[Rfam]
msiK RNA: a 59-nucleotide RNA from Pengzhenrongella sicca. Rfam classes the family as a cis-regulatory element. Pairs were carried over by alignment from the consensus structure, which is taken from published work. A search with the family's covariance model found it, with a score of 60 bits.
RNA sequence: AACUGGCACCACUCACUACGGAUCGUCCGGCACGUACCUGCCGGUGAGGGGAUUUUCUG
Number, nucleotide and partner (000 for none) at each position: 001a000002a000003c000004u000005g000006g000007c000008a000009c051010c050011a000012c048013u047014c046015a045016c000017u000018a000019c000020g000021g000022a000023u000024c000025g000026u000027c044028c043029g042030g041031c040032a039033c000034g000035u000036a000037c000038c000039u032040g031041c030042c029043g028044g027045u015046g014047a013048g012049g000050g010051g009052a000053u000054u000055u000056u000057c000058u000059g000